Rfam assigns this 45-nucleotide RNA sequence from Pavo cristatus to the family "Histone 3' UTR stem-loop". A reference for the family is Dominski and Marzluff (1999), "Formation of the 3' end of histone mRNA", Gene. It scores 40 bits against the family's covariance model. The source organism's lineage runs through Eukaryota, Sarcopterygii, Saurischia, Aves and Pavo.
RNA sequence: CCAAAGGCUCUUUUCAGAGCCACCCACAAUUCCUGAAAAGGAGCU
Numbered sequence: 001c002c003a004a005a006g007g008c009u010c011u012u013u014u015c016a017g018a019g020c021c022a023c024c025c026a027c028a029a030u031u032c033c034u035g036a037a038a039a040g041g042a043g044c045u
Stems, first nucleotide, its partner, number of pairs: 006021006